[Rfam]
The record is a 178-nucleotide sequence from Oryza glumipatula, which matches "MIR807 microRNA precursor family" in Rfam. Rfam links the family to the GO terms miRNA-mediated post-transcriptional gene silencing and RISC complex.
RNA sequence: AACCACAGUAUCGAUGAAUGGAUUUACCCGUGUGAUGACGUGGUUGUUACAUCUAGGAUGAUGACGUGGCAUAUCCUAUUAAUUUCGUGCGAUGGCUGAUAAUAGGAUCACACGUCCUCGUCCUAUGUGAAACAGCCAUGUCAUCUCGCGGGUGAAUCCAUUCAUUAAUAGCGUGGUU
Number, nucleotide and partner (000 for none) at each position: 001a178002a177003c176004c175005a174006c173007a000008g000009u170010a169011u168012c000013g166014a165015u164016g000017a162018a161019u160020g000021g158022a157023u156024u155025u154026a153027c152028c151029c000030g149031u148032g147033u000034g000035a144036u143037g142038a141039c140040g000041u138042g137043g136044u135045u134046g133047u132048u131049a000050c000051a128052u127053c000054u125055a124056g000057g122058a121059u000060g000061a000062u000063g116064a115065c114066g000067u000068g000069g000070c000071a000072u000073a108074u107075c106076c105077u104078a103079u102080u101081a100082a000083u000084u000085u000086c000087g000088u099089g000090c000091g000092a000093u000094g000095g000096c000097u000098g000099a088100u081101a080102a079103u078104a077105g076106g075107a074108u073109c000110a000111c000112a000113c000114g065115u064116c063117c000118u000119c000120g000121u058122c057123c000124u055125a054126u000127g052128u051129g000130a000131a048132a047133c046134a045135g044136c043137c042138a041139u000140g039141u038142c037143a036144u035145c000146u000147c032148g031149c030150g000151g028152g027153u026154g025155a024156a023157u022158c021159c000160a019161u018162u017163c000164a015165u014166u013167a000168a011169u010170a009171g000172c000173g006174u005175g004176g003177u002178u001
Source information
The base pairs follow the family's consensus structure, which was predicted with WAR.